The family of this 99-nucleotide RNA sequence from Kocuria soli is "Glycine riboswitch aptamer".
[Rfam]
Nucleotides: 099
Stems, first nucleotide, its partner, number of pairs: 006094005012089003021041006043079003046075001050073003056066002
Number, partner (000 for none) and nucleotide at each position: 001000a002000c003000g004000a005000g006094c007093g008092u009091u010090c011000c012089c013088g014087g015000g016000a017000g018000a019000g020000a021041c022040c023039c024038c025037g026036c027000g028000g029000a030000a031000a032000c033000u034000g035000c036026g037025u038024g039023g040022g041021g042000c043079g044078c045077c046075g047000u048000a049000g050073g051072a052071g053000c054000a055000a056066u057065c058000c059000c060000u061000c062000c063000c064000c065057g066056g067000g068000a069000a070000a071052c072051u073050c074000u075046c076000a077045g078044g079043c080000a081000c082000c083000c084000g085000c086000a087014c088013c089012g090010g091009g092008a093007c094006g095000c096000u097000c098000g099000g